[Rfam]
RNA sequence: GAUGGAACCUGUGGGAACCAACCAUGUAGACAGAGAAGAAUGACCUCUGUCCACACAUCCCAGUGUUCCUACAUAAACAUGGAGGUCUCUGUCUGACUUAGGUCUGCCACUGAGUCAGAUCGUCCCCUCCAUACAAC
Numbered sequence: 001g002a003u004g005g006a007a008c009c010u011g012u013g014g015g016a017a018c019c020a021a022c023c024a025u026g027u028a029g030a031c032a033g034a035g036a037a038g039a040a041u042g043a044c045c046u047c048u049g050u051c052c053a054c055a056c057a058u059c060c061c062a063g064u065g066u067u068c069c070u071a072c073a074u075a076a077a078c079a080u081g082g083a084g085g086u087c088u089c090u091g092u093c094u095g096a097c098u099u100a101g102g103u104c105u106g107c108c109a110c111u112g113a114g115u116c117a118g119a120u121c122g123u124c125c126c127c128u129c130c131a132u133a134c135a136a137c
Base pairs, nucleotide, nucleotide: 004069005068006067009063010062011061025055026054027053029051030050031049037046038045081130082129083128084127085126089122091120092119093118095116096115097114098113099112100111101110